[Rfam]
RNA: nrdJ RNA
Organism: Streptomyces finlayi
RNA sequence: ACCUGUUCCCGGCGCUGCGAGCGGCGCCCGGAGCAUCAGACACACACUGUGCCCUGGGAAGAACUGGGUACUUCAGGGCGUU
Dot-bracket structure: ...((((((.((((((......)))))).)))))).............((((((.(.......).))))))...........